[Rfam]
RNA sequence: CGGAUCUGGUCGUGAGGCCGGGUCUGACCGGGCAGAGGUCAGCAGAGGUCGUAGUGCCGGUGAGGGGAACGGACAAUCAGCCGGGAAGGAC
Numbered sequence: 001c002g003g004a005u006c007u008g009g010u011c012g013u014g015a016g017g018c019c020g021g022g023u024c025u026g027a028c029c030g031g032g033c034a035g036a037g038g039u040c041a042g043c044a045g046a047g048g049u050c051g052u053a054g055u056g057c058c059g060g061u062g063a064g065g066g067g068a069a070c071g072g073a074c075a076a077u078c079a080g081c082c083g084g085g086a087a088g089g090a091c
Stems, first nucleotide, its partner, number of pairs: 001026002004023008039046002048091003057084005
RNA: Group II catalytic intron D1-D4-1
Organism: Acrocarpospora corrugata